[Rfam]
RNA sequence: GGCCUAAAGCGUCCGUAGCCGGCCCCGUAAGUCCUCGGUUAAAUCCGCCUGAAGACAGGCGGACCGCCGAGGAUACUGCGGGGCUAGGGAGCGGGAGGGGCCGAGGGUAUUCCGGGGGGAGCGGUAAAAUGCGUAGAUCCCCGGAGGACCACCAGUGGCGAAGGCGCUCGGCUGGAACGCGUCCGACGGUGAGGGACGAAAGCUGGGGGAGCAAACCGGAUUAGAUACCCGGGUAGUCCCAGCCGUAAACGAUGCCGGCUAGGUGCCGGCUGAGGUUUCGGCCUCAGCCGGUGUCGAAGCGAAGGCAUUAAGCCGGCCGCCUGAGGAGUACAGCCGCAAGGCCGAAACUUAAAGGAAU
Numbered sequence: 001g002g003c004c005u006a007a008a009g010c011g012u013c014c015g016u017a018g019c020c021g022g023c024c025c026c027g028u029a030a031g032u033c034c035u036c037g038g039u040u041a042a043a044u045c046c047g048c049c050u051g052a053a054g055a056c057a058g059g060c061g062g063a064c065c066g067c068c069g070a071g072g073a074u075a076c077u078g079c080g081g082g083g084c085u086a087g088g089g090a091g092c093g094g095g096a097g098g099g100g101c102c103g104a105g106g107g108u109a110u111u112c113c114g115g116g117g118g119g120a121g122c123g124g125u126a127a128a129a130u131g132c133g134u135a136g137a138u139c140c141c142c143g144g145a146g147g148a149c150c151a152c153c154a155g156u157g158g159c160g161a162a163g164g165c166g167c168u169c170g171g172c173u174g175g176a177a178c179g180c181g182u183c184c185g186a187c188g189g190u191g192a193g194g195g196a197c198g199a200a201a202g203c204u205g206g207g208g209g210a211g212c213a214a215a216c217c218g219g220a221u222u223a224g225a226u227a228c229c230c231g232g233g234u235a236g237u238c239c240c241a242g243c244c245g246u247a248a249a250c251g252a253u254g255c256c257g258g259c260u261a262g263g264u265g266c267c268g269g270c271u272g273a274g275g276u277u278u279c280g281g282c283c284u285c286a287g288c289c290g291g292u293g294u295c296g297a298a299g300c301g302a303a304g305g306c307a308u309u310a311a312g313c314c315g316g317c318c319g320c321c322u323g324a325g326g327a328g329u330a331c332a333g334c335c336g337c338a339a340g341g342c343c344g345a346a347a348c349u350u351a352a353a354g355g356a357a358u
Base pairs, nucleotide, nucleotide: 001321002320003319009318011197012196013195014194016191018190019189020188022084023083024082025081026080027079028078030077031076032073033072034071035070036069037068038067039066045062046061047060048059049058050057051056088184089183090182091180092179093178099173100172101171102170103169104168105167106150107149110146111145112144113143114142115141116140117139121132122131123130158165159164202243203242204241205240206239207238211237212236216232217231218230219229254317255316256315257314258313259312262295263294264293265292266291267290268289269288270287271286272285273284274283275282299306300305323350324349325348333342334341335340
RNA: Archaeal small subunit ribosomal RNA, nucleotides 526 to 883